[Rfam]
RNA sequence: UCUUCCCGGAGGGAGAGCGGGCUGGGGGUAUGGUGGUAUGUGUGUUUCCUCGGUGUCUCGUGGAAGGCGCGUGUGGGCCGAGUGUGAGUGGACGCGUGACUGUGUGGAUGUGCGCGUGGGGCGUGCAAGGCGAGUGUGUGCGCCCGCCCCUGAGCCCCUCUCUCCCGCUUACACCUUGAUCUUAUUUGAUCGGGUUGUGACCCUUUGCCCCGCCAGGCCGUCCCGAAAUGAAAAGCUCCCCUCCUGCGAAGCCUCCCUCUUGGGGGGCGCUGUGCAGCGAGGCCACUUUGGCGGCGGCGUCGCCGCGGUCCCUGAGCCGGUCUUACGGGACCCGGCGCUCAGAAGUGAUGAAUUGAUCAGAUAGACGAGGCCAGGCUAGUCCCGGGCCACUGAUUAUCGAGGCGAUUCUGAUCUGA
Numbered sequence: 001u002c003u004u005c006c007c008g009g010a011g012g013g014a015g016a017g018c019g020g021g022c023u024g025g026g027g028g029u030a031u032g033g034u035g036g037u038a039u040g041u042g043u044g045u046u047u048c049c050u051c052g053g054u055g056u057c058u059c060g061u062g063g064a065a066g067g068c069g070c071g072u073g074u075g076g077g078c079c080g081a082g083u084g085u086g087a088g089u090g091g092a093c094g095c096g097u098g099a100c101u102g103u104g105u106g107g108a109u110g111u112g113c114g115c116g117u118g119g120g121g122c123g124u125g126c127a128a129g130g131c132g133a134g135u136g137u138g139u140g141c142g143c144c145c146g147c148c149c150c151u152g153a154g155c156c157c158c159u160c161u162c163u164c165c166c167g168c169u170u171a172c173a174c175c176u177u178g179a180u181c182u183u184a185u186u187u188g189a190u191c192g193g194g195u196u197g198u199g200a201c202c203c204u205u206u207g208c209c210c211c212g213c214c215a216g217g218c219c220g221u222c223c224c225g226a227a228a229u230g231a232a233a234a235g236c237u238c239c240c241c242u243c244c245u246g247c248g249a250a251g252c253c254u255c256c257c258u259c260u261u262g263g264g265g266g267g268c269g270c271u272g273u274g275c276a277g278c279g280a281g282g283c284c285a286c287u288u289u290g291g292c293g294g295c296g297g298c299g300u301c302g303c304c305g306c307g308g309u310c311c312c313u314g315a316g317c318c319g320g321u322c323u324u325a326c327g328g329g330a331c332c333c334g335g336c337g338c339u340c341a342g343a344a345g346u347g348a349u350g351a352a353u354u355g356a357u358c359a360g361a362u363a364g365a366c367g368a369g370g371c372c373a374g375g376c377u378a379g380u381c382c383c384g385g386g387c388c389a390c391u392g393a394u395u396a397u398c399g400a401g402g403c404g405a406u407u408c409u410g411a412u413c414u415g416a
Stems, first nucleotide, its partner, number of pairs: 052156003056152001057073001059071004090105001092103003109142002111138005117132002185234003190226004196220002199218001202217003207213002260315002264313004269309003274306002277303003282298003286293001316336005321330003340415004350408006369388004374383002
This 416-nucleotide sequence from Suricata suricatta belongs to the Rfam family "Small Cajal body-specific RNA 2". The source organism's lineage runs through Eukaryota, Tetrapoda, Laurasiatheria, Carnivora and Suricata. The match comes from Rfam's covariance-model search (372 bits).